[Rfam]
Shown here is a 269-nucleotide sequence from Neorhodopirellula pilleata, a member of the family "Group II catalytic intron D1-D4-6". Taxonomically the source falls in Neorhodopirellula (Bacteria, Planctomycetia, Pirellulales, Pirellulaceae). Group II introns are found in rRNA, tRNA and mRNA of organelles in fungi, plants and protists, and also in mRNA in bacteria.
RNA sequence: GGACUCCCGCCUGGGUAACUGCUAGCCACUGGCCCAGUAUAGAGUGUUGCAGCUUGCGUGUAAGGCGUAUCGCCGAAGUCGCCGGUUGAAGCGUACACAGAAAGGUAGUGAGGAUGAAAGGUAAAGGGGUUGCGCCCCGCCCUGAACGGUAUUUAGCUCCGAGAACAUGGUUUCUGUUGGAUCCUGCCCAAGGUCUUUGCAUGCUGGAAGGCAAUACUUCGGUUCACGCUAACGGUGAUUGAAUCGAGGAAACCCGGAGUCGAAGGCCC
Numbered sequence: 001g002g003a004c005u006c007c008c009g010c011c012u013g014g015g016u017a018a019c020u021g022c023u024a025g026c027c028a029c030u031g032g033c034c035c036a037g038u039a040u041a042g043a044g045u046g047u048u049g050c051a052g053c054u055u056g057c058g059u060g061u062a063a064g065g066c067g068u069a070u071c072g073c074c075g076a077a078g079u080c081g082c083c084g085g086u087u088g089a090a091g092c093g094u095a096c097a098c099a100g101a102a103a104g105g106u107a108g109u110g111a112g113g114a115u116g117a118a119a120g121g122u123a124a125a126g127g128g129g130u131u132g133c134g135c136c137c138c139g140c141c142c143u144g145a146a147c148g149g150u151a152u153u154u155a156g157c158u159c160c161g162a163g164a165a166c167a168u169g170g171u172u173u174c175u176g177u178u179g180g181a182u183c184c185u186g187c188c189c190a191a192g193g194u195c196u197u198u199g200c201a202u203g204c205u206g207g208a209a210g211g212c213a214a215u216a217c218u219u220c221g222g223u224u225c226a227c228g229c230u231a232a233c234g235g236u237g238a239u240u241g242a243a244u245c246g247a248g249g250a251a252a253c254c255c256g257g258a259g260u261c262g263a264a265g266g267c268c269c
Stems, first nucleotide, its partner, number of pairs: 012036004019031001021029001023238001025236002040107002044098004048093002050088005056082003153263001156260006179254002182251001185250001186212003192205003217249010